Rfam assigns this 130-nucleotide RNA sequence from Sinocyclocheilus grahami to the family "Small nucleolar RNA SNORA55".

RNA sequence: GCACUUCAGCAAACCCUUUCCUUCUGUCUCAGUGCUGGUCAUGGGUUAAAAAGUGCUAGAGUAAUUCAGCGUGUAUCCAGACGAGUCUCCUUUUCUAUUGGAGCUUGUCUCUACAAACUUUGAAACAAUG
Number, nucleotide and partner (000 for none) at each position: 001g056002c055003a054004c053005u052006u000007c000008a000009g000010c000011a000012a046013a000014c044015c043016c000017u041018u000019u000020c038021c037022u000023u000024c000025u000026g000027u000028c000029u000030c000031a000032g000033u000034g000035c000036u000037g021038g020039u000040c000041a017042u000043g015044g014045g000046u012047u000048a000049a000050a000051a000052a005053g004054u003055g002056c001057u000058a000059g000060a000061g000062u000063a000064a000065u000066u123067c122068a121069g120070c000071g118072u000073g000074u000075a000076u000077c000078c000079a110080g109081a108082c107083g106084a105085g104086u103087c000088u000089c101090c100091u000092u000093u000094u000095c000096u000097a000098u000099u000100g090101g089102a000103g086104c085105u084106u083107g082108u081109c080110u079111c000112u000113a000114c000115a000116a000117a000118c071119u000120u069121u068122g067123a066124a000125a000126c000127a000128a000129u000130g000

Rfam classes the family as an H/ACA-box small nucleolar RNA. Rfam 15.1 lists 1,476 matches to the family in 616 species. From the family's description: ACA55 is a member of the H/ACA class of snoRNA that guide the sites of modification of uridines to pseudouridines.